[Rfam]
RNA sequence: UGGUGAGCCCCGCGGCGCUGAUGGACCCCCGACCCAGCAACGCCGCGGGGCUCACCU
Number, nucleotide and partner (000 for none) at each position: 001u000002g056003g055004u054005g053006a000007g051008c050009c049010c048011c047012g046013c045014g044015g043016c042017g041018c000019u039020g038021a000022u036023g000024g000025a000026c000027c000028c000029c000030c000031g000032a000033c000034c000035c000036a022037g000038c020039a019040a000041c017042g016043c015044c014045g013046c012047g011048g010049g009050g008051c007052u000053c005054a004055c003056c002057u000
Shown here is a 57-nucleotide RNA sequence from Labedaea rhizosphaerae, a member of the family "F6 TB sRNA".
A search with the family's covariance model found it, with a score of 58 bits.
The literature on the family includes a 2009 paper in Mol Microbiol by Arnvig and Young, "Identification of small RNAs in Mycobacterium tuberculosis".